[Rfam]
This 76-nucleotide RNA sequence from Quercus lobata belongs to the Rfam family "Small nucleolar RNA snoR60". The source organism's lineage runs through Eukaryota, Spermatophyta, Magnoliopsida, Fagales and Quercus. Rfam links the family to the GO terms RNA processing and nucleolus. Rfam classes the family as a C/D-box small nucleolar RNA. The family has 10 seed sequences and 1,133 matches in Rfam 15.1. It scores 48 bits against the family's covariance model. A reference for the family is Barneche et al. (2000), "Fibrillarin genes encode both a conserved nucleolar protein and a novel small nucleolar RNA involved in ribosomal RNA methylation in Arabidopsis thaliana", J Biol Chem.
RNA sequence: GAGCAAAUGAUGAGUUACUCGGGCCAUUCCUCCUCAUGAUGAUGUUAUGGGUGAUGCAAGCUCAAGUUCAGAUGCU
Numbered sequence: 001g002a003g004c005a006a007a008u009g010a011u012g013a014g015u016u017a018c019u020c021g022g023g024c025c026a027u028u029c030c031u032c033c034u035c036a037u038g039a040u041g042a043u044g045u046u047a048u049g050g051g052u053g054a055u056g057c058a059a060g061c062u063c064a065a066g067u068u069c070a071g072a073u074g075c076u
Stems, first nucleotide, its partner, number of pairs: 002076004